[Rfam]
RNA sequence: GUCGUCCGGUGUUUUCCUCCCAUUGCGCCGGGCGAUGUUCCCCUCUGAAGGUUAUGACCUUCACCUUGGCCGGGCCGUUUUCACGCCCGGCCAUUUUU
Number, nucleotide and partner (000 for none) at each position: 001g000002u031003c030004g000005u000006c000007c000008g000009g028010u027011g026012u025013u000014u000015u000016c000017c000018u000019c000020c000021c000022a000023u000024u000025g012026c011027g010028c009029c000030g003031g002032g000033c000034g000035a000036u000037g000038u000039u000040c000041c000042c000043c000044u000045c000046u063047g062048a061049a060050g059051g058052u057053u000054a000055u000056g000057a052058c051059c050060u049061u048062c047063a046064c000065c000066u000067u093068g092069g091070c090071c089072g088073g086074g000075c000076c085077g084078u083079u000080u000081u000082c000083a078084c077085g076086c073087c000088c072089g071090g070091c069092c068093a067094u000095u000096u000097u000098u000
This 98-nucleotide RNA from Mesorhizobium sp. ORS 3428 belongs to the Rfam family "Alphaproteobacterial ar15". For this family Rfam cites "Small RNA-mediated control of the Agrobacterium tumefaciens GABA binding protein" (Wilms et al., Mol Microbiol, 2011). The match comes from Rfam's covariance-model search (48 bits). The family has 61 seed sequences and 316 matches in Rfam 15.1. The family's RNA type in Rfam is small RNA. Rfam links the family to the GO term protein binding. Pairs were carried over by alignment from the consensus structure.